Annotation: Rfam assigns this 76-nucleotide RNA sequence from Alligator mississippiensis to the family "Mammalian CPEB3 ribozyme". The match comes from Rfam's covariance-model search (42 bits). Rfam describes the family as follows. The mammalian CPEB3 ribozyme is a self cleaving RNA located in the second intron of the CPEB3 gene which belongs to a family of genes regulating messenger RNA polyadenylation. The organism belongs to Alligator, within Eukaryota.
RNA sequence: GUUGCAAAUUUAAGGCCACAGCAGAUGCGCUCACGGCAUGGCCAUGUCAGAUUCCAACAAAUUUGUGAAUUUUGCU
Numbered sequence: 001g002u003u004g005c006a007a008a009u010u011u012a013a014g015g016c017c018a019c020a021g022c023a024g025a026u027g028c029g030c031u032c033a034c035g036g037c038a039u040g041g042c043c044a045u046g047u048c049a050g051a052u053u054c055c056a057a058c059a060a061a062u063u064u065g066u067g068a069a070u071u072u073u074g075c076u
Stems, first nucleotide, its partner, number of pairs: 014043004020076006027039001029037001048065006